[Rfam]
RNA sequence: GUCAUCCGCGGCAUUUAGCCGCGGCCUCAUUGAAGC
Numbered sequence: 001g002u003c004a005u006c007c008g009c010g011g012c013a014u015u016u017a018g019c020c021g022c023g024g025c026c027u028c029a030u031u032g033a034a035g036c
Stems, first nucleotide, its partner, number of pairs: 006024007
Rfam assigns this 36-nucleotide RNA sequence from Thioalkalivibrio sulfidiphilus to the family "CRISPR RNA direct repeat element". Its family is annotated with defense response in the Gene Ontology. NCBI's taxonomy places the organism under Bacteria, Gammaproteobacteria, Ectothiorhodospiraceae, Thioalkalivibrio, Thioalkalivibrio sulfidiphilus.